[Rfam]
RNA sequence: AGCUUGCCAAUGAUGUCACAGAAUAAAUGUCUGAACAAAUGAGAUCACAGUGAUUUUCUUUUUUUAAAGAUCUUUACUGAGGCAAGCU
Numbered sequence: 001a002g003c004u005u006g007c008c009a010a011u012g013a014u015g016u017c018a019c020a021g022a023a024u025a026a027a028u029g030u031c032u033g034a035a036c037a038a039a040u041g042a043g044a045u046c047a048c049a050g051u052g053a054u055u056u057u058c059u060u061u062u063u064u065u066a067a068a069g070a071u072c073u074u075u076a077c078u079g080a081g082g083c084a085a086g087c088u
Stems, first nucleotide, its partner, number of pairs: 002087007

A member of the RNA family "Small nucleolar RNA SNORD72" from Hucho hucho, 88 nucleotides long.
Rfam links the family to the GO terms RNA processing and nucleolus.
The family has 16 seed sequences and 726 matches in Rfam 15.1.
The family's RNA type in Rfam is C/D-box small nucleolar RNA.
The pairing is the family consensus, mapped onto this sequence.
Taxonomically the source falls in Hucho (Eukaryota, Clupeocephala, Protacanthopterygii, Salmonidae).
snoRNA HBII-240 belongs to the CD family of snoRNAs. It is the human orthologue of the mouse MBII-240 and is predicted to guide 2'O-ribose methylation of the large 28S rRNA at residue U4590.